[Rfam]
RNA: Wolbachia sRNA 46
Organism: Trichonephila inaurata
RNA sequence: AUGACGUAGGGCUACAGGUGUCAUCCCAGUGCCCAGACACUGGGAUCCAGAAAACUUAACUUUAAAUAAGUGGCUGCAUGAUAAAGACUAGAUCCCAGUGUCACGCACUGGGAUGACAUUAUUAGGAGCACUGG
Numbered sequence: 001a002u003g004a005c006g007u008a009g010g011g012c013u014a015c016a017g018g019u020g021u022c023a024u025c026c027c028a029g030u031g032c033c034c035a036g037a038c039a040c041u042g043g044g045a046u047c048c049a050g051a052a053a054a055c056u057u058a059a060c061u062u063u064a065a066a067u068a069a070g071u072g073g074c075u076g077c078a079u080g081a082u083a084a085a086g087a088c089u090a091g092a093u094c095c096c097a098g099u100g101u102c103a104c105g106c107a108c109u110g111g112g113a114u115g116a117c118a119u120u121a122u123u124a125g126g127a128g129c130a131c132u133g134g
Stems, first nucleotide, its partner, number of pairs: 009131001011129003019118014036102012049089002